[Rfam]
RNA: UnaL2 LINE 3' element
RNA sequence: CUUGUACUGACUUGUAAGUCGCUUUGGAUAAAAGCGUCUGCUAAAUGUAAAUUG
Number, nucleotide and partner (000 for none) at each position: 001c000002u000003u000004g000005u000006a000007c000008u000009g000010a000011c000012u000013u043014g041015u040016a039017a000018g000019u000020c036021g035022c034023u033024u032025u031026g000027g000028a000029u000030a000031a025032a024033a023034g022035c021036g020037u000038c000039u016040g015041c014042u000043a013044a000045a000046u000047g000048u000049a000050a000051a000052u000053u000054g000